This 86-nucleotide sequence from Trichinella nelsoni belongs to the Rfam family "mir-81 microRNA precursor family". Taxonomically the source falls in Trichinella (Eukaryota, Opisthokonta, Ecdysozoa, Trichinellida). The match comes from Rfam's covariance-model search (56 bits). Rfam 15.1 lists 68 matches to the family in 54 species.
[Rfam]
RNA sequence: UCAAGGCCCGGAACAGGUUUUCACCCUGAUCUAACAGUGUGCUCGAUUCGUGUGAGAUCACCGUGAAAGCCUUUUCCGUGCUUUCC
Numbered sequence: 001u002c003a004a005g006g007c008c009c010g011g012a013a014c015a016g017g018u019u020u021u022c023a024c025c026c027u028g029a030u031c032u033a034a035c036a037g038u039g040u041g042c043u044c045g046a047u048u049c050g051u052g053u054g055a056g057a058u059c060a061c062c063g064u065g066a067a068a069g070c071c072u073u074u075u076c077c078g079u080g081c082u083u084u085c086c
Stems, first nucleotide, its partner, number of pairs: 009078004016071009027060006034053003037047002